[Rfam]
tRNA: a 74-nucleotide RNA sequence from Thiocapsa marina. The family's RNA type in Rfam is transfer RNA. Rfam's curators write: Transfer RNA (tRNA) molecules are approximately 80 nucleotides in length. Lineage of the source: Bacteria > Gammaproteobacteria > Chromatiales > Chromatiaceae > Thiocapsa marina. A search with the family's covariance model found it, with a score of 71 bits.
RNA sequence: GGCUACGUAGCUCAGUUGGUUAGAGCAUCGCACUCAUAAUGCGAGGGUCCCCUGUUCGAGUCAGGGCGUAGCCA
Numbered sequence: 001g002g003c004u005a006c007g008u009a010g011c012u013c014a015g016u017u018g019g020u021u022a023g024a025g026c027a028u029c030g031c032a033c034u035c036a037u038a039a040u041g042c043g044a045g046g047g048u049c050c051c052c053u054g055u056u057c058g059a060g061u062c063a064g065g066g067c068g069u070a071g072c073c074a
Stems, first nucleotide, its partner, number of pairs: 001073007010026004028044005050066005